[Rfam]
RNA sequence: GGUGGCUCACACCGGUGCUUCGGACAGCGGUUCGAUUCCGCUCAGCUCCAUUCCACCCCGCUGCGGCGGCGGUGUCCGCGGGGCUGCAAUGGUUUCGACGGGGUAUGAGGAGGGUGACUGAAGCCUGCUCGGUAAGAGCAAACCCGUAACAGCGAACAACAUCGUUCGUUUCUCCCGUCAGACCGCCCCUGUGGCUGCCUGA
Numbered sequence: 001g002g003u004g005g006c007u008c009a010c011a012c013c014g015g016u017g018c019u020u021c022g023g024a025c026a027g028c029g030g031u032u033c034g035a036u037u038c039c040g041c042u043c044a045g046c047u048c049c050a051u052u053c054c055a056c057c058c059c060g061c062u063g064c065g066g067c068g069g070c071g072g073u074g075u076c077c078g079c080g081g082g083g084c085u086g087c088a089a090u091g092g093u094u095u096c097g098a099c100g101g102g103g104u105a106u107g108a109g110g111a112g113g114g115u116g117a118c119u120g121a122a123g124c125c126u127g128c129u130c131g132g133u134a135a136g137a138g139c140a141a142a143c144c145c146g147u148a149a150c151a152g153c154g155a156a157c158a159a160c161a162u163c164g165u166u167c168g169u170u171u172c173u174c175c176c177g178u179c180a181g182a183c184c185g186c187c188c189c190u191g192u193g194g195c196u197g198c199c200u201g202a
Base pairs, nucleotide, nucleotide: 001119002118003117005115016105017104018103020101021100022099026042027041028040029039030038043086044085045084046083047082048081049080
RNA: permuted transfer-messenger RNA
Organism: Synechococcus sp. WH 5701